[Rfam]
RNA sequence: UUUGAAAAGGCCAAACCCUUCGCGAGGAGGGGGCGGAAAGCGAGGGAUCUUCCCUGAAGAGAAGAUGGCCGAGCUGCCAAAG
Numbered sequence: 001u002u003u004g005a006a007a008a009g010g011c012c013a014a015a016c017c018c019u020u021c022g023c024g025a026g027g028a029g030g031g032g033g034c035g036g037a038a039a040g041c042g043a044g045g046g047a048u049c050u051u052c053c054c055u056g057a058a059g060a061g062a063a064g065a066u067g068g069c070c071g072a073g074c075u076g077c078c079a080a081a082g
Base pairs, nucleotide, nucleotide: 001082003079004078011036012035016031017030018029019028020027021026034068039075040074041073045070046069047066048065049064
Shown here is an 82-nucleotide RNA sequence from Pelobacter propionicus, a member of the family "c-di-GMP-I-GGC riboswitch aptamer". NCBI's taxonomy places the organism under Bacteria, Pseudomonadati, Thermodesulfobacteriota, Desulfuromonadia, Pelobacter propionicus.